[Rfam]
RNA sequence: GCGCAGCCAAUGGUUAUCCCUUGCCAGCCUGGCUUGUGGGACUCUAGAUGGAGUCAGGCUGCGAGUGGCAGUGGUGAGCUCUUCUGUCCAGCGUCAGUAUGCUGAUGGUGGCUUUCGACUGGCCGGAUAUGC
Numbered sequence: 001g002c003g004c005a006g007c008c009a010a011u012g013g014u015u016a017u018c019c020c021u022u023g024c025c026a027g028c029c030u031g032g033c034u035u036g037u038g039g040g041a042c043u044c045u046a047g048a049u050g051g052a053g054u055c056a057g058g059c060u061g062c063g064a065g066u067g068g069c070a071g072u073g074g075u076g077a078g079c080u081c082u083u084c085u086g087u088c089c090a091g092c093g094u095c096a097g098u099a100u101g102c103u104g105a106u107g108g109u110g111g112c113u114u115u116c117g118a119c120u121g122g123c124c125g126g127a128u129a130u131g132c
Stems, first nucleotide, its partner, number of pairs: 003062006024047001026045002029040002072125004077120002080118002086112003092107006